Shown here is a 64-nucleotide RNA from Magallana gigas, a member of the family "mir-1994 microRNA precursor family". The match comes from Rfam's covariance-model search (49 bits). Lineage of the source: Eukaryota > Opisthokonta > Spiralia > Ostreida > Magallana.
[Rfam]
RNA sequence: GAUGCGGAAGGCCUCGCUUGUCUCCAUGAUUAUUUAACAUGAGACAGUGUGUCCUCCCUUGUCA
Numbered sequence: 001g002a003u004g005c006g007g008a009a010g011g012c013c014u015c016g017c018u019u020g021u022c023u024c025c026a027u028g029a030u031u032a033u034u035u036a037a038c039a040u041g042a043g044a045c046a047g048u049g050u051g052u053c054c055u056c057c058c059u060u061g062u063c064a
Stems, first nucleotide, its partner, number of pairs: 002062002006057003010053002013051001015049001017047002020045004026040003